[Rfam]
RNA: Glycine riboswitch aptamer
RNA sequence: CCUCUGGAAAGCGAGGGCGUCCCGCGCCCUCCGCCGAAGGUGAAAGCCCCGCGCCCCGGGGUGAAACUCUCAGGCCCGAUGACAGAGG
Numbered sequence: 001c002c003u004c005u006g007g008a009a010a011g012c013g014a015g016g017g018c019g020u021c022c023c024g025c026g027c028c029c030u031c032c033g034c035c036g037a038a039g040g041u042g043a044a045a046g047c048c049c050c051g052c053g054c055c056c057c058g059g060g061g062u063g064a065a066a067c068u069c070u071c072a073g074g075c076c077c078g079a080u081g082a083c084a085g086a087g088g
Stems, first nucleotide, its partner, number of pairs: 001088006013031004033075003036071002040069001042067001046062005